[Rfam]
RNA: ncRNA Repressor of NFAT (nuclear factor of activated T cells)
Organism: Turnix velox
RNA sequence: CCAUGCUCAGCCCUGGCGUCACUCAAACAGCCCUCCUCCUAUUAAUCCAGAUCAGAAAAUCUCUCCUAAUGAGGAGCGAUGCAGUUAUGAACUCUCUAGAGCCAUAAUUAGAGCAAACUAAUUGAAGUUGUGUUUUGACACACUUUCCAAAUGCAGGGGUGCUGCGUGACACAUUCUCAGCGCUGGCGCGCACAGCCCAGGCGACAGCAGAAUCAUUAGACUAAUCAGCCUCAUUUGCAUUCUUAUCAUGCCAGCCUCACCCACCCCUCAUUCCCUCUCAAACUUUCCACUGCAACACAUUAACAGCCAUUAUUAGUGCUUUGGUGGGAUCUGUGACGCUGAGGA
Dot-bracket structure: .......................................(.(((.((((....((.....((((.(....).))))....(.(((..(...(((....))).........(((..........((((.(((((....)))))))))..........(((...........................(((...........)))...(((...........(.(((.......))).)...........)))........)))....)))....................................)..))).).....))....)))).....))).).......